[Rfam]
RNA sequence: UAGGGUUAAAUCAAUGUGGGGCGUACAUUUUGAAAAUGGAACCCACAAAAAGUGGUGGGACAUACAUUGGUUUCAGCCAA
Numbered sequence: 001u002a003g004g005g006u007u008a009a010a011u012c013a014a015u016g017u018g019g020g021g022c023g024u025a026c027a028u029u030u031u032g033a034a035a036a037u038g039g040a041a042c043c044c045a046c047a048a049a050a051a052g053u054g055g056u057g058g059g060a061c062a063u064a065c066a067u068u069g070g071u072u073u074c075a076g077c078c079a080a
Stems, first nucleotide, its partner, number of pairs: 001080001003078002006075001008073011024057002026054006
RNA: MIR5269 microRNA precursor family